The record is a 245-nucleotide sequence from Symbiodinium sp. CCMP2456, which matches "RNase MRP" in Rfam. Pairs were carried over by alignment from the consensus structure, which is taken from published work.
RNA sequence: GGUGGCAGGGGAAGCAUGGCCGCGCAGCCAACACACAGGGAGUUCGCUCCUUCGCAUGCUGUGGGGAAAGUCCCCGUGCCUUGGGGCAGAGAGUGUGAUUGGGAGACCAAGAGGCCAGAUCCCGAAGCUUGCAGUGAAGCCUCGUGUGGAGCUGAUUUGCGGAGCUGGCCACUUGCAACAGCAAAGUCAUGUCGUGAGCACUCCAAAGAGUGCCAACUGAACGGGGCUCACUCUCCCCAUGCCGC
Numbered sequence: 001g002g003u004g005g006c007a008g009g010g011g012a013a014g015c016a017u018g019g020c021c022g023c024g025c026a027g028c029c030a031a032c033a034c035a036c037a038g039g040g041a042g043u044u045c046g047c048u049c050c051u052u053c054g055c056a057u058g059c060u061g062u063g064g065g066g067a068a069a070g071u072c073c074c075c076g077u078g079c080c081u082u083g084g085g086g087c088a089g090a091g092a093g094u095g096u097g098a099u100u101g102g103g104a105g106a107c108c109a110a111g112a113g114g115c116c117a118g119a120u121c122c123c124g125a126a127g128c129u130u131g132c133a134g135u136g137a138a139g140c141c142u143c144g145u146g147u148g149g150a151g152c153u154g155a156u157u158u159g160c161g162g163a164g165c166u167g168g169c170c171a172c173u174u175g176c177a178a179c180a181g182c183a184a185a186g187u188c189a190u191g192u193c194g195u196g197a198g199c200a201c202u203c204c205a206a207a208g209a210g211u212g213c214c215a216a217c218u219g220a221a222c223g224g225g226g227c228u229c230a231c232u233c234u235c236c237c238c239a240u241g242c243c244g245c
Stems, first nucleotide, its partner, number of pairs: 002245005008238005015196006023063006037052006069228002072226004086096003100109003111172001113170006120162002123159001129154001131152002139147002198213006
Rfam classes the family as a ribozyme. Rfam's curators write: RNase MRP is an enzymatically active ribonucleoprotein with two distinct roles in eukaryotes. In mitochondria it plays a direct role in the initiation of mitochondrial DNA replication. In the nucleus it is involved in precursor rRNA processing, where it cleaves the internal transcribed spacer 1 between 18S and 5.8S rRNAs. Despite distinct functions, RNase MRP has been shown to be evolutionarily related to RNase P. Like eukaryotic RNase P, RNase MRP is not catalytically active without associated protein subunits.